[Rfam]
RNA sequence: AAACGGUUAUUAUUUCUACCUAAGACUCAGGUGUUUACCUUAAAUGCUUAUUUAUAAGCGGCCCGCCGAGGAGAAAGUUUGUACGGUUUUUAGCAGACUCUCAAUCGGCGUUGUGUCCUUAGGCACAGCGUUUUUUAUUUAGGAGA
Numbered sequence: 001a002a003a004c005g006g007u008u009a010u011u012a013u014u015u016c017u018a019c020c021u022a023a024g025a026c027u028c029a030g031g032u033g034u035u036u037a038c039c040u041u042a043a044a045u046g047c048u049u050a051u052u053u054a055u056a057a058g059c060g061g062c063c064c065g066c067c068g069a070g071g072a073g074a075a076a077g078u079u080u081g082u083a084c085g086g087u088u089u090u091u092a093g094c095a096g097a098c099u100c101u102c103a104a105u106c107g108g109c110g111u112u113g114u115g116u117c118c119u120u121a122g123g124c125a126c127a128g129c130g131u132u133u134u135u136u137a138u139u140u141a142g143g144a145g146a
Base pairs, nucleotide, nucleotide: 028065030063031062032061033039108131109130110129111128112127113126114125115124116123117122

The record is a 146-nucleotide RNA sequence from Loigolactobacillus backii, which matches "Ribosomal protein L10 leader" in Rfam. This family is a putative r-protein leader autoregulatory structure found in B. subtilis and other low-GC Gram-positive bacteria. It is located in the 5' untranslated regions of mRNAs encoding ribosomal proteins L10 and L12 (rplJ-rplL). A Rho-independent transcription terminator structure that is probably involved in regulation is included at the 3' end. A reference for the family is Zengel and Lindahl (1994), "Diverse mechanisms for regulating ribosomal protein synthesis in Escherichia coli", Prog Nucleic Acid Res Mol Biol. Taxonomically the source falls in Loigolactobacillus (Bacteria, Bacillati, Bacilli, Lactobacillales). Rfam classes the family as a cis-regulatory leader.